The record is a 121-nucleotide sequence from Lacticaseibacillus nasuensis, which matches "FMN riboswitch aptamer (RFN element)" in Rfam.
[Rfam]
RNA sequence: GUUCGUCUUCAGGGCAGGGUGUAAUUCCCGACCGGUGGUAAAGUCCACGACCCGCGUUUUCGCGGCCGAUUCGGUGAAAUUCCGAAACCGAUAGUGAGAGUCUAGUAUAAAGAAGAUGGGG
Number, nucleotide and partner (000 for none) at each position: 001g000002u000003u119004c118005g117006u116007c115008u114009u113010c112011a000012g000013g000014g000015c000016a000017g029018g028019g027020u000021g000022u000023a000024a000025u000026u000027c019028c018029c017030g000031a101032c100033c090034g089035g048036u047037g046038g045039u000040a000041a000042a000043g088044u087045c038046c037047a036048c035049g000050a000051c000052c065053c064054g000055c000056g000057u000058u000059u000060u000061c000062g000063c000064g053065g052066c000067c000068g000069a000070u086071u085072c084073g083074g082075u000076g000077a000078a000079a000080u000081u000082c074083c073084g072085a071086a070087a044088c043089c034090g033091a000092u104093a103094g102095u000096g000097a000098g000099a000100g032101u031102c094103u093104a092105g000106u000107a000108u000109a000110a000111a000112g010113a009114a008115g007116a006117u005118g004119g003120g000121g000
Rfam links the family to the GO term FMN binding.
A search with the family's covariance model found it, with a score of 102 bits.
Pairs were carried over by alignment from the consensus structure, which is taken from published work.
Lineage of the source: Bacteria > Bacillati > Bacilli > Lacticaseibacillus > Lacticaseibacillus nasuensis.